Notes
The family of this 35-nucleotide RNA sequence from Myotis myotis is "Iron response element I". It scores 35 bits against the family's covariance model. The family has 62 seed sequences and 6,829 matches in Rfam 15.1. Rfam links the family to the GO term response to iron ion.
RNA sequence: CUACCUCCUGCUUCAACAGUGUUUGAACAGAACAG
Numbered sequence: 001c002u003a004c005c006u007c008c009u010g011c012u013u014c015a016a017c018a019g020u021g022u023u024u025g026a027a028c029a030g031a032a033c034a035g
Stems, first nucleotide, its partner, number of pairs: 001035002006031002010028001012027005017021001
For this family Rfam cites "Identification of the iron-responsive element for the translational regulation of human ferritin mRNA" (Hentze et al., Science, 1987).